[Rfam]
RNA sequence: AAUGAUAAGUGGCAAAGCCAUUGAAAAAUGGUGACGCAAAGCUAUAGGGGCUAAUUUGGGCUAUUCGCUUCAAAACGCCAGCCAGCUGCCGAA
Numbered sequence: 001a002a003u004g005a006u007a008a009g010u011g012g013c014a015a016a017g018c019c020a021u022u023g024a025a026a027a028a029u030g031g032u033g034a035c036g037c038a039a040a041g042c043u044a045u046a047g048g049g050g051c052u053a054a055u056u057u058g059g060g061c062u063a064u065u066c067g068c069u070u071c072a073a074a075a076c077g078c079c080a081g082c083c084a085g086c087u088g089c090c091g092a093a
Base pairs, nucleotide, nucleotide: 012037013036017032018031019030020029021028022027040087041086042085043084047083048082049079050078051077056073057072058071059070